[Rfam]
RNA: L17-Actino-Proteobacteria ribosomal protein leader
Organism: Kitasatospora sp. MBT63
RNA sequence: CCGGGCAACAGUGCCCGGCCGCCCGCUGCGGUACCUGACACGGCCGCAGUCGG
Numbered sequence: 001c002c003g004g005g006c007a008a009c010a011g012u013g014c015c016c017g018g019c020c021g022c023c024c025g026c027u028g029c030g031g032u033a034c035c036u037g038a039c040a041c042g043g044c045c046g047c048a049g050u051c052g053g
Base pairs, nucleotide, nucleotide: 001018002017003016004015005014006013007012023053024052025051026049027048028047029046030045031044032043